[Rfam]
RNA sequence: CCCCUUUCCGAGCGGCCCAUGGAUGCGUAUAUUGUCCAUUGCCGUCGUUCGCGGCGGCUAUGGCGAUAAACGAGCAUCGGAAUAAGCCUAUCGGACCCGGGGGCGGUACCCGGCGCCUCCACCCGAGGCCGUGACCUGCAGAAUGCAGUGUGCGCGAUGCGGCCUGGGGCGGGGGCGAAAUAGGAUCGACGAGGGUGUAAAGGGUGUUUUUUCGCUCGGCAUGAUACCGCCGUUAUCGGGUCAAUCCUAUAGUUGCCAACGACAACUAUGCUCCGGUGGCCGUCGCCGCGUAAUGCGGUGAAGGUACUGGGUUCAAAGCCCUAGGGGGUUGCACCUCUAGGCGGGGCUCGGAGGCGCCUGGCAACAGAAGCCUCCACU
Numbered sequence: 001c002c003c004c005u006u007u008c009c010g011a012g013c014g015g016c017c018c019a020u021g022g023a024u025g026c027g028u029a030u031a032u033u034g035u036c037c038a039u040u041g042c043c044g045u046c047g048u049u050c051g052c053g054g055c056g057g058c059u060a061u062g063g064c065g066a067u068a069a070a071c072g073a074g075c076a077u078c079g080g081a082a083u084a085a086g087c088c089u090a091u092c093g094g095a096c097c098c099g100g101g102g103g104c105g106g107u108a109c110c111c112g113g114c115g116c117c118u119c120c121a122c123c124c125g126a127g128g129c130c131g132u133g134a135c136c137u138g139c140a141g142a143a144u145g146c147a148g149u150g151u152g153c154g155c156g157a158u159g160c161g162g163c164c165u166g167g168g169g170c171g172g173g174g175g176c177g178a179a180a181u182a183g184g185a186u187c188g189a190c191g192a193g194g195g196u197g198u199a200a201a202g203g204g205u206g207u208u209u210u211u212u213c214g215c216u217c218g219g220c221a222u223g224a225u226a227c228c229g230c231c232g233u234u235a236u237c238g239g240g241u242c243a244a245u246c247c248u249a250u251a252g253u254u255g256c257c258a259a260c261g262a263c264a265a266c267u268a269u270g271c272u273c274c275g276g277u278g279g280c281c282g283u284c285g286c287c288g289c290g291u292a293a294u295g296c297g298g299u300g301a302a303g304g305u306a307c308u309g310g311g312u313u314c315a316a317a318g319c320c321c322u323a324g325g326g327g328g329u330u331g332c333a334c335c336u337c338u339a340g341g342c343g344g345g346g347c348u349c350g351g352a353g354g355c356g357c358c359u360g361g362c363a364a365c366a367g368a369a370g371c372c373u374c375c376a377c378u
Stems, first nucleotide, its partner, number of pairs: 041058007062216005072209007087195003091192003097113005114177007217232004222243003227239002344359004350375006

Description:
This 378-nucleotide RNA from Methylosinus sp. 3S-1 belongs to the Rfam family "Alphaproteobacteria transfer-messenger RNA". From the family's description: Bacterial tmRNA, also known as 10Sa RNA or SsrA, is named for its dual tRNA and mRNA-like properties. Its role is to liberate the mRNA from a stalled ribosome. To accomplish this part of the tmRNA is used as a reading frame that ends in a translation stop signal. It scores 296 bits against the family's covariance model.